Overview:
Rfam assigns this 37-nucleotide sequence from Tindallia californiensis to the family "abiF RNA". The family's RNA type in Rfam is small RNA. Rfam describes the family as follows. Actinobacteria, Bacteroidetes, Clostridia, Proteobacteria, one Clostridia phage.
RNA sequence: CCCGCCACGCCUCUUACUAAAGCGUACCAAGGCGGGU
Numbered sequence: 001c002c003c004g005c006c007a008c009g010c011c012u013c014u015u016a017c018u019a020a021a022g023c024g025u026a027c028c029a030a031g032g033c034g035g036g037u
Stems, first nucleotide, its partner, number of pairs: 001036006008024003